This 68-nucleotide RNA from Desulfobacteraceae bacterium SEEP-SAG10 belongs to the Rfam family "int-alpA RNA". By type it is a small RNA.

[Rfam]
RNA sequence: UCCGGGGAUAGGGUGAGCUCCCCGAAAGGCGGUUUUCCUGGACCGCUUUCCCCGGACUCCAACCAGGC
Number, nucleotide and partner (000 for none) at each position: 001u056002c055003c054004g053005g052006g051007g050008a049009u000010a000011g023012g022013g021014u000015g000016a000017g000018c000019u000020c000021c013022c012023c011024g000025a000026a000027a000028g000029g046030c045031g044032g043033u042034u000035u000036u000037c067038c066039u065040g064041g000042a033043c032044c031045g030046c029047u000048u000049u008050c007051c006052c005053c004054g003055g002056a001057c000058u000059c000060c000061a000062a000063c000064c040065a039066g038067g037068c000